[Rfam]
RNA: mir-19 microRNA precursor family
Organism: Jaculus jaculus
RNA sequence: CCUUACAAUUCGUUUUGCAGGUUUGCAUUUCAGCGUCUAUCUGUUGAUGUGGCUGUGCAAAUCCAUGCAAAACGGAUUGUGAUG
Numbered sequence: 001c002c003u004u005a006c007a008a009u010u011c012g013u014u015u016u017g018c019a020g021g022u023u024u025g026c027a028u029u030u031c032a033g034c035g036u037c038u039a040u041c042u043g044u045u046g047a048u049g050u051g052g053c054u055g056u057g058c059a060a061a062u063c064c065a066u067g068c069a070a071a072a073c074g075g076a077u078u079g080u081g082a083u084g
Stems, first nucleotide, its partner, number of pairs: 003082017020064002022061007032054003